[Rfam]
A member of the RNA family "Potassium channel RNA editing signal" from Albula goreensis, 115 nucleotides long. The family's consensus secondary structure is taken from published work. By type it is a cis-regulatory element. This family represents a group of sequences related to the human potassium channel Kv1.1 hairpin element which directs the efficient modification of an adenosine to inosine by an adenosine deaminase acting on RNA (ADAR). A reference for the family is Bhalla et al. (2004), "Control of human potassium channel inactivation by editing of a small mRNA hairpin", Nat Struct Mol Biol.

RNA sequence: CUGCAGAUAUGGAGACAUGGUACCGAAGACGAUUGCAGGGAAGAUCUUUGGUUCCAUCUGCUCUCUGAGUGGGGUGCUGGUAAUAGCCCUACCCGUGCCGGUCAUCGUGUCCAAC
Numbered sequence: 001c002u003g004c005a006g007a008u009a010u011g012g013a014g015a016c017a018u019g020g021u022a023c024c025g026a027a028g029a030c031g032a033u034u035g036c037a038g039g040g041a042a043g044a045u046c047u048u049u050g051g052u053u054c055c056a057u058c059u060g061c062u063c064u065c066u067g068a069g070u071g072g073g074g075u076g077c078u079g080g081u082a083a084u085a086g087c088c089c090u091a092c093c094c095g096u097g098c099c100g101g102u103c104a105u106c107g108u109g110u111c112c113a114a115c
Stems, first nucleotide, its partner, number of pairs: 002114001006111001008109005014103003019098001022096002038078002041075001050064002